Shown here is a 132-nucleotide RNA sequence from Rhodoblastus acidophilus, a member of the family "Manganese Mn2+ riboswitch aptamer (yybP-ykoY)".
RNA sequence: CUGCCGCGUCAUUGGGGAGUAGCCGCCUCUCGCAACGAGAGGGGUCGCGUCAACAUCAUCGCCUCGUCCGCAUCGAGGCGUGGCGCGAUCAACAGAGCCGGUUCAGACCGGACUGCUGGCCAGACCUUUGAC
Numbered sequence: 001c002u003g004c005c006g007c008g009u010c011a012u013u014g015g016g017g018a019g020u021a022g023c024c025g026c027c028u029c030u031c032g033c034a035a036c037g038a039g040a041g042g043g044g045u046c047g048c049g050u051c052a053a054c055a056u057c058a059u060c061g062c063c064u065c066g067u068c069c070g071c072a073u074c075g076a077g078g079c080g081u082g083g084c085g086c087g088a089u090c091a092a093c094a095g096a097g098c099c100g101g102u103u104c105a106g107a108c109c110g111g112a113c114u115g116c117u118g119g120c121c122a123g124a125c126c127u128u129u130g131a132c
Stems, first nucleotide, its partner, number of pairs: 027041003043090010060080007